[Rfam]
RNA sequence: GGUUUGAGGUUUUCUCGGCAGUUAACUGCCGAAGUUUUCAGUUUUCCUCGGCAGUUAACUGCCGAGGGGUAU
Dot-bracket structure: ...........((.((((((((((((((((((...............)))))))))))))))))).))....
RNA: MIR2629 microRNA precursor family
Organism: Medicago truncatula